epsC RNA: a 113-nucleotide RNA sequence from Ornithinibacillus bavariensis. The family has 30 seed sequences and 450 matches in Rfam 15.1. The source organism's lineage runs through Bacteria, Bacillati, Bacilli, Bacillaceae and Ornithinibacillus. The family's RNA type in Rfam is cis-regulatory element.
RNA sequence: UGGUCAUGUCUACAAAACCGUUAUCAAAGUAGGCACUCGGUCAUUCUGUGGGUUGAAAUAGACCUUAGAUGCAAGUCGUCGAUGGAGUGAUGUGAGGGAGGGUUAGAUGCCCU
Numbered sequence: 001u002g003g004u005c006a007u008g009u010c011u012a013c014a015a016a017a018c019c020g021u022u023a024u025c026a027a028a029g030u031a032g033g034c035a036c037u038c039g040g041u042c043a044u045u046c047u048g049u050g051g052g053u054u055g056a057a058a059u060a061g062a063c064c065u066u067a068g069a070u071g072c073a074a075g076u077c078g079u080c081g082a083u084g085g086a087g088u089g090a091u092g093u094g095a096g097g098g099a100g101g102g103u104u105a106g107a108u109g110c111c112c113u
Stems, first nucleotide, its partner, number of pairs: 001020004007035007036096004040091008050065005068080004099113005